[Rfam]
RNA sequence: GCCAUACUACGGUGCAUUAUGGUGCAAAGUAAACGAUGACCCUUAGGGAACUCCAGGGUAAAAUACCGGUCAAUUUGAAAACUGUUACUGACCUGGAGUCAUCACUCCGGGUUGGUUUUCUUU
Dot-bracket structure: (.(((....((..((.............))...))))).)((....))........(((.........)))...............(((((((((((........))))))))))).......